[Rfam]
RNA sequence: GGCUGGUCUGAGUGUGGUGGGAUUUACAACUAAUUGAUCACAAUUAGUUACAGUUUCCUUUGUUCCUUCUCCACUCCCACUGCUUCACUUGACCAGCCAUAA
Numbered sequence: 001g002g003c004u005g006g007u008c009u010g011a012g013u014g015u016g017g018u019g020g021g022a023u024u025u026a027c028a029a030c031u032a033a034u035u036g037a038u039c040a041c042a043a044u045u046a047g048u049u050a051c052a053g054u055u056u057c058c059u060u061u062g063u064u065c066c067u068u069c070u071c072c073a074c075u076c077c078c079a080c081u082g083c084u085u086c087a088c089u090u091g092a093c094c095a096g097c098c099a100u101a102a
Stems, first nucleotide, its partner, number of pairs: 001098008010090002014086001016081006028064003032060002

The record is a 102-nucleotide RNA from Microcebus murinus, which matches "Y RNA" in Rfam. Y RNAs are components of the Ro ribonucleoprotein particle (Ro RNP), in association with Ro60 and La proteins. It is annotated as a non-coding RNA gene. A search with the family's covariance model found it, with a score of 79 bits.